[Rfam]
RNA: mir-190 microRNA precursor family
Organism: Elysia chlorotica
RNA sequence: CCCGCCGUCAGAUAUGUUUGAUAUAUUUGGUGGUACUCGAGACUACACCAGAUAUCAGACAUGUCACAACGGCGGC
Number, nucleotide and partner (000 for none) at each position: 001c000002c000003c000004g000005c072006c071007g070008u069009c000010a000011g065012a064013u063014a062015u061016g060017u059018u058019u057020g056021a055022u054023a053024u052025a000026u000027u000028u000029g049030g048031u047032g046033g000034u000035a000036c000037u000038c000039g000040a000041g000042a000043c000044u000045a000046c032047a031048c030049c029050a000051g000052a024053u023054a022055u021056c020057a019058g018059a017060c016061a015062u014063g013064u012065c011066a000067c000068a000069a008070c007071g006072g005073c000074g000075g000076c000